[Rfam]
RNA: Eukaryotic small subunit ribosomal RNA, nucleotides 1 to 585
Organism: Selenidium serpulae
RNA sequence: UACCUGGUUGAUCCUGCCAGUAGUCAUAUGCUUGUCUCAAGGAUUAAGCCAUGCAUGUUCCAGUAUGAGUUUUGAUAUAACGAAACUGCGAAGGGCUCAUUAAAUCGGUUAUUAAACAAUCGACGAUUCACAUAUGGUUAUCCGUGACAAUUCUACGGUUAAUACAUGCUUUGCCACUUUGUGGUGCCUUUAUUUCGACUAUGGCUGACAGCUUCGGCUGAUCGUCGUGAAGAAAUUAUCUGUGCUUAUCGUUCUUCUGAAAGAAGCGUCGAAGUUAUUUCCGCCCUAUCAGCUUUCGUCGGUAACGUAGUGGUUUACCGUGGCAGUGACGGGUAACGGGGAAUUAGGGUUUGACUCCGGAGAGGGAGCCUGAGAAAUGGCUACCACAUCUAAGGAUGGCAGCAGGCGCGCGAAUUACCCAAUCCUAUACUAGGGAGGUAGCGACAAGAAAUAACAACAUAGGUAUUUUGUAUUUAUGAUUGGAAUGGAGGGACCGUAGCGUAUCCCCUGAAAGCCAUUGGAGGGCAAGACUGGUGCCAGCAGCCGCGGUAAUUCCAGCUCCAACAGCGUAUAUUAAUGUUGCUG
Dot-bracket structure: ...(((((.......))))).(((.(((((((..(((...((.....(((.(((..((...(((....((.........))...)))))......(((.......(((..((..((....((((........((((.....(((((.......)))))......))))......((.....))......(.((((........(.((..(((....)))...)).)......)))).)..........((.((......)).))...))))...))))..))).(((....(((.....((((((.........)))))).)))......)))...((((((((....))))...))))))).((.(((..........))).)).((((....))))...)))))).).....(.(((...(((((...))))).)))).)....))).....((((((((((((...))))))))).)))......(((..............).))........((((((.......((((.....((....)).......)))))))))).))))))))))..........
Numbered sequence: 001u002a003c004c005u006g007g008u009u010g011a012u013c014c015u016g017c018c019a020g021u022a023g024u025c026a027u028a029u030g031c032u033u034g035u036c037u038c039a040a041g042g043a044u045u046a047a048g049c050c051a052u053g054c055a056u057g058u059u060c061c062a063g064u065a066u067g068a069g070u071u072u073u074g075a076u077a078u079a080a081c082g083a084a085a086c087u088g089c090g091a092a093g094g095g096c097u098c099a100u101u102a103a104a105u106c107g108g109u110u111a112u113u114a115a116a117c118a119a120u121c122g123a124c125g126a127u128u129c130a131c132a133u134a135u136g137g138u139u140a141u142c143c144g145u146g147a148c149a150a151u152u153c154u155a156c157g158g159u160u161a162a163u164a165c166a167u168g169c170u171u172u173g174c175c176a177c178u179u180u181g182u183g184g185u186g187c188c189u190u191u192a193u194u195u196c197g198a199c200u201a202u203g204g205c206u207g208a209c210a211g212c213u214u215c216g217g218c219u220g221a222u223c224g225u226c227g228u229g230a231a232g233a234a235a236u237u238a239u240c241u242g243u244g245c246u247u248a249u250c251g252u253u254c255u256u257c258u259g260a261a262a263g264a265a266g267c268g269u270c271g272a273a274g275u276u277a278u279u280u281c282c283g284c285c286c287u288a289u290c291a292g293c294u295u296u297c298g299u300c301g302g303u304a305a306c307g308u309a310g311u312g313g314u315u316u317a318c319c320g321u322g323g324c325a326g327u328g329a330c331g332g333g334u335a336a337c338g339g340g341g342a343a344u345u346a347g348g349g350u351u352u353g354a355c356u357c358c359g360g361a362g363a364g365g366g367a368g369c370c371u372g373a374g375a376a377a378u379g380g381c382u383a384c385c386a387c388a389u390c391u392a393a394g395g396a397u398g399g400c401a402g403c404a405g406g407c408g409c410g411c412g413a414a415u416u417a418c419c420c421a422a423u424c425c426u427a428u429a430c431u432a433g434g435g436a437g438g439u440a441g442c443g444a445c446a447a448g449a450a451a452u453a454a455c456a457a458c459a460u461a462g463g464u465a466u467u468u469u470g471u472a473u474u475u476a477u478g479a480u481u482g483g484a485a486u487g488g489a490g491g492g493a494c495c496g497u498a499g500c501g502u503a504u505c506c507c508c509u510g511a512a513a514g515c516c517a518u519u520g521g522a523g524g525g526c527a528a529g530a531c532u533g534g535u536g537c538c539a540g541c542a543g544c545c546g547c548g549g550u551a552a553u554u555c556c557a558g559c560u561c562c563a564a565c566a567g568c569g570u571a572u573a574u575u576a577a578u579g580u581u582g583c584u585g
Stems, first nucleotide, its partner, number of pairs: 004020005022575003026572007035449003041442001042409001048407003052404003057089002062087003069081002096362003106283003111278002115276002121271004133168004142158005175183002190238001192236004204226001206224002210219003249264002252261002285333003292324003300320006337359004341352004364385002367382003387398004415440001417439003423435005455482003458478009489509002491506001518564006531558004540547002